RNA sequence: GCCAAAUGAUGCUUUUAUCUGAUACUGGAGCACUUCAGUGCAAAGAAGACUCUUAUCUAUCACCCAUGACUGAUGGCU
Numbered sequence: 001g002c003c004a005a006a007u008g009a010u011g012c013u014u015u016u017a018u019c020u021g022a023u024a025c026u027g028g029a030g031c032a033c034u035u036c037a038g039u040g041c042a043a044a045g046a047a048g049a050c051u052c053u054u055a056u057c058u059a060u061c062a063c064c065c066a067u068g069a070c071u072g073a074u075g076g077c078u
Stems, first nucleotide, its partner, number of pairs: 001077004030041004
Source information:
A member of the RNA family "Small nucleolar RNA SNORD83" from Otolemur garnettii, 78 nucleotides long. NCBI's taxonomy places the organism under Eukaryota, Vertebrata, Euteleostomi, Boreoeutheria, Otolemur.